[Rfam]
RNA sequence: GAUGGCAAAGGAUGAAUGUUUAUCUUAUCCUACACUCUGAUGAACCGUGUAGAUUCUAAUUUUCGCUUAUUGAUAUUCUGAUGCUUUU
Numbered sequence: 001g002a003u004g005g006c007a008a009a010g011g012a013u014g015a016a017u018g019u020u021u022a023u024c025u026u027a028u029c030c031u032a033c034a035c036u037c038u039g040a041u042g043a044a045c046c047g048u049g050u051a052g053a054u055u056c057u058a059a060u061u062u063u064c065g066c067u068u069a070u071u072g073a074u075a076u077u078c079u080g081a082u083g084c085u086u087u088u
Stems, first nucleotide, its partner, number of pairs: 004085004

The record is an 88-nucleotide sequence from Gossypium raimondii, which matches "Small nucleolar RNA R16" in Rfam. Pairs were carried over by alignment from the consensus structure, which was predicted with PFOLD. On this family, see Marker et al., Curr Biol 2002: "Experimental RNomics: identification of 140 candidates for small non-messenger RNAs in the plant Arabidopsis thaliana". The family has 18 seed sequences and 884 matches in Rfam 15.1. Gene Ontology terms of the family: nucleolus and RNA processing. The match comes from Rfam's covariance-model search (46 bits).